[Rfam]
RNA: mir-544 microRNA precursor family
Organism: Chinchilla lanigera
RNA sequence: AUCUGGGGAUCUUGUUAUAAGGCAGAUUCUGAUUCAGUAGGUCUAAGACAGAGCCUAAGAUUCUGCAUUUCUAACAAGCCCUCAAGUAAUGCUGA
Numbered sequence: 001a002u003c004u005g006g007g008g009a010u011c012u013u014g015u016u017a018u019a020a021g022g023c024a025g026a027u028u029c030u031g032a033u034u035c036a037g038u039a040g041g042u043c044u045a046a047g048a049c050a051g052a053g054c055c056u057a058a059g060a061u062u063c064u065g066c067a068u069u070u071c072u073a074a075c076a077a078g079c080c081c082u083c084a085a086g087u088a089a090u091g092c093u094g095a
Stems, first nucleotide, its partner, number of pairs: 001087002006082003011078007019069002022066005028060003